[Rfam]
RNA sequence: GGCUCCGGCGGGGCGGGCGGCUGAAAGACAAAAGGACGUGGGGAAAGCACCUCCGCCGAGCCCCACCCCUCCCGCCCGUGAGCGGCGAAGGCGCUGGUCACUCGGGUGGGUGAAUAUGCCCGGCUCCGCUGGAUUUCGCGAACGCGGACGGUCCACGCUCAGCACGAGCAGGACACACACCGGACUUACGUCGGCCCCCGCCCGGGACUUCCACUCCCAACUGCGGGGGCCUGACCACCAAGGAAGUACAGCCCCUUCCCG
Numbered sequence: 001g002g003c004u005c006c007g008g009c010g011g012g013g014c015g016g017g018c019g020g021c022u023g024a025a026a027g028a029c030a031a032a033a034g035g036a037c038g039u040g041g042g043g044a045a046a047g048c049a050c051c052u053c054c055g056c057c058g059a060g061c062c063c064c065a066c067c068c069c070u071c072c073c074g075c076c077c078g079u080g081a082g083c084g085g086c087g088a089a090g091g092c093g094c095u096g097g098u099c100a101c102u103c104g105g106g107u108g109g110g111u112g113a114a115u116a117u118g119c120c121c122g123g124c125u126c127c128g129c130u131g132g133a134u135u136u137c138g139c140g141a142a143c144g145c146g147g148a149c150g151g152u153c154c155a156c157g158c159u160c161a162g163c164a165c166g167a168g169c170a171g172g173a174c175a176c177a178c179a180c181c182g183g184a185c186u187u188a189c190g191u192c193g194g195c196c197c198c199c200g201c202c203c204g205g206g207a208c209u210u211c212c213a214c215u216c217c218c219a220a221c222u223g224c225g226g227g228g229g230c231c232u233g234a235c236c237a238c239c240a241a242g243g244a245a246g247u248a249c250a251g252c253c254c255c256u257u258c259c260c261g
Stems, first nucleotide, its partner, number of pairs: 007239002010236001016076004098113006128163005193231005199225003204218004242259005
The record is a 261-nucleotide RNA sequence from Streptomyces griseoaurantiacus, which matches "Streptomyces sRNA 4677" in Rfam. Rfam 15.1 lists 563 matches to the family in 285 species. Rfam describes the family as follows. Located in the intergenic region between anti-sigma factor SCO4677 gene and a putative regulatory protein gene SCO4676. scr4677 expression requires the SCO4677 activity and scr4677 sRNA itself seem to affect the levels of the SCO4676-associated transcripts. For this family Rfam cites "Complex intra-operonic dynamics mediated by a small RNA in Streptomyces coelicolor" (Hindra et al., PLoS One, 2014).